[Rfam]
RNA sequence: GAAGCUUCUCAGGGCGGGGUGAAAUUCCCCACCGGCGGUUACAGCCCGCGAGCGCCUUCCGGUUAUCGGAAGGGUCAGCAGACACCGGUGAAAUUCCGGGGCCGACGGUUAGAGUCCGGAUGGAAGAGAACGAGA
Numbered sequence: 001g002a003a004g005c006u007u008c009u010c011a012g013g014g015c016g017g018g019g020u021g022a023a024a025u026u027c028c029c030c031a032c033c034g035g036c037g038g039u040u041a042c043a044g045c046c047c048g049c050g051a052g053c054g055c056c057u058u059c060c061g062g063u064u065a066u067c068g069g070a071a072g073g074g075u076c077a078g079c080a081g082a083c084a085c086c087g088g089u090g091a092a093a094u095u096c097c098g099g100g101g102c103c104g105a106c107g108g109u110u111a112g113a114g115u116c117c118g119g120a121u122g123g124a125a126g127a128g129a130a131c132g133a134g135a
Stems, first nucleotide, its partner, number of pairs: 006130005017029003031115002033104002035049004044102002052079002083100001085099004106118003